[Rfam]
Nucleotides: 420
Base pairs, nucleotide, nucleotide: 052155053154054153055152056151057067058066059065089104091102092101093100107142108141109140110137111136112135113134114133116131117130183231184230185229188223189222190221191220193218194217195216197215200214201213202212204210205209255312257310258309260307261306262305264304265303266302269301270300272298273297274296277293278292279291280289281288320340321339322338323337324336325334326333344419345418346417347416354412355411356410357409358408359407373392374391376389378387379386
Number, partner (000 for none) and nucleotide at each position: 001000u002000u003000u004000c005000a006000c007000c008000g009000g010000a011000g012000g013000g014000a015000g016000a017000g018000c019000g020000g021000c022000a023000u024000g025000g026000g027000g028000u029000g030000a031000g032000g033000c034000u035000g036000g037000u038000c039000a040000g041000a042000a043000g044000u045000g046000u047000g048000g049000c050000g051000a052155g053154g054153u055152g056151u057067g058066u059065g060000g061000a062000a063000g064000g065059c066058g067057c068000c069000u070000g071000c072000g073000g074000g075000c076000u077000g078000u079000g080000u081000g082000u083000g084000u085000g086000a087000g088000u089104g090000g091102a092101c093100g094000c095000g096000a097000g098000a099000a100093u101092g102091u103000g104089u105000g106000a107142g108141u109140g110137c111136g112135c113134g114133c115000g116131u117130g118000g119000u120000g121000c122000g123000u124000g125000c126000a127000a128000g129000g130117u131116g132000a133114g134113u135112g136111c137110g138000u139000g140109c141108g142107c143000c144000c145000g146000c147000c148000c149000c150000c151056g152055u153054g154053c155052c156000c157000c158000u159000c160000c161000c162000c163000c164000g165000g166000c167000c168000u169000a170000c171000a172000c173000c174000u175000u176000g177000a178000u179000c180000u181000u182000a183231u184230u185229u186000g187000a188223u189222c190221g191220g192000g193218u194217u195216g196000u197215g198000a199000c200214u201213c202212c203000c204210g205209c206000c207000c208000c209205g210204c211000c212202g213201g214200a215197c216195c217194a218193a219000c220191c221190c222189g223188a224000a225000a226000u227000g228000a229185a230184a231183a232000g233000c234000u235000c236000c237000c238000c239000u240000c241000c242000u243000g244000c245000g246000a247000a248000g249000c250000c251000c252000c253000u254000u255312c256000g257310u258309c259000g260307g261306g262305g263000c264304a265303c266302u267000g268000u269301g270300c271000a272298g273297c274296g275000a276000g277293g278292c279291c280289c281288c282000u283000u284000g285000g286000g287000c288281g289280g290000u291279g292278g293277c294000a295000a296274c297273g298272c299000c300270g301269c302266g303265g304264u305262c306261c307260c308000g309258g310257a311000g312255g313000u314000c315000c316000c317000g318000g319000a320340g321339c322338u323337g324336g325334u326333c327000c328000u329000a330000c331000g332000a333326g334325g335000c336324c337323c338322g339321g340320c341000g342000c343000u344419c345418a346417g347416a348000a349000g350000u351000g352000a353000u354412g355411a356410a357409u358408u359407g360000a361000u362000c363000a364000g365000a366000u367000a368000g369000a370000u371000g372000a373392g374391g375000c376389u377000g378387g379386g380000c381000u382000u383000g384000u385000c386379c387378u388000g389376g390000a391374c392373c393000a394000c395000u396000g397000a398000u399000u400000a401000u402000c403000g404000a405000g406000g407359c408358g409357a410356u411355u412354c413000u414000g415000a416347u417346c418345u419344g420000a
Source information:
Shown here is a 420-nucleotide RNA sequence from Tursiops truncatus, a member of the family "Small Cajal body-specific RNA 2". Its family is annotated with RNA processing and nucleolus in the Gene Ontology. By type it is a small Cajal body RNA. The literature on the family includes a 2004 paper in Curr Biol by Tycowski et al., "Guide RNAs with 5' caps and novel box C/D snoRNA-like domains for modification of snRNAs in metazoa". Pairs were carried over by alignment from the consensus structure, which is taken from published work.